[Rfam]
The record is a 118-nucleotide RNA sequence from Panicum hallii, which matches "Small nucleolar RNA Z278" in Rfam. snoZ278 is a C/D box small nucleolar RNA. Its methylation guide targets have not been reported. Rfam 15.1 lists 1,130 matches to the family in 214 species. The literature on the family includes a 2003 paper in Nucleic Acids Res by Chen et al., "The high diversity of snoRNAs in plants: identification and comparative study of 120 snoRNA genes from Oryza sativa". The base pairs follow the family's consensus structure, which was predicted with PFOLD. The family's RNA type in Rfam is C/D-box small nucleolar RNA. The source organism's lineage runs through Eukaryota, Spermatophyta, Liliopsida, commelinids and Panicum hallii. It scores 80 bits against the family's covariance model.
RNA sequence: GCCCCUGAUGAAAUCGCCCGAUGUUUGGAGGCUGCAAUCGGCUCUAAGUUCCUGCCUGUCAGGAAGAACCUACUUGGAGCCGCUGCACUCGCAUGACAACACUGGGCGAAUCUGAGGC
Numbered sequence: 001g002c003c004c005c006u007g008a009u010g011a012a013a014u015c016g017c018c019c020g021a022u023g024u025u026u027g028g029a030g031g032c033u034g035c036a037a038u039c040g041g042c043u044c045u046a047a048g049u050u051c052c053u054g055c056c057u058g059u060c061a062g063g064a065a066g067a068a069c070c071u072a073c074u075u076g077g078a079g080c081c082g083c084u085g086c087a088c089u090c091g092c093a094u095g096a097c098a099a100c101a102c103u104g105g106g107c108g109a110a111u112c113u114g115a116g117g118c
Stems, first nucleotide, its partner, number of pairs: 001118003050064005